[Rfam]
RNA sequence: GUGCUAUGAUGUCAUUGCUAACACGUCAUUCUGACCCAAACAUAUGGGGAGAUAUCUAAUGCACCUGAGCACA
Numbered sequence: 001g002u003g004c005u006a007u008g009a010u011g012u013c014a015u016u017g018c019u020a021a022c023a024c025g026u027c028a029u030u031c032u033g034a035c036c037c038a039a040a041c042a043u044a045u046g047g048g049g050a051g052a053u054a055u056c057u058a059a060u061g062c063a064c065c066u067g068a069g070c071a072c073a
Stems, first nucleotide, its partner, number of pairs: 001072004
The family of this 73-nucleotide RNA from Albula goreensis is "Small nucleolar RNA SNORD63".
The base pairs follow the family's consensus structure, which was predicted with PFOLD.
The source organism's lineage runs through Eukaryota, Craniata, Elopocephalai, Elopocephala and Albula.
About the family: snoRNA U63 is found in both humans and mice.